[Rfam]
RNA sequence: ACUUCCUCCGGGAAUGAAGUUCUCCCACGGGCAACCGAAACCGCUUUUUCAAGCUGAUGACUUCUGUGAUGUU
Numbered sequence: 001a002c003u004u005c006c007u008c009c010g011g012g013a014a015u016g017a018a019g020u021u022c023u024c025c026c027a028c029g030g031g032c033a034a035c036c037g038a039a040a041c042c043g044c045u046u047u048u049u050c051a052a053g054c055u056g057a058u059g060a061c062u063u064c065u066g067u068g069a070u071g072u073u
Stems, first nucleotide, its partner, number of pairs: 010026004016064006043054004
This 73-nucleotide RNA sequence from Oscillibacter sp. PC13 belongs to the Rfam family "Fluoride riboswitch aptamer (crcB RNA motif)". On this family, see Zhao et al., Nat Chem Biol 2017: "An excited state underlies gene regulation of a transcriptional riboswitch". Lineage of the source: Bacteria > Bacillati > Bacillota > Eubacteriales > Oscillibacter. Rfam 15.1 lists 2,293 matches to the family in 1,982 species.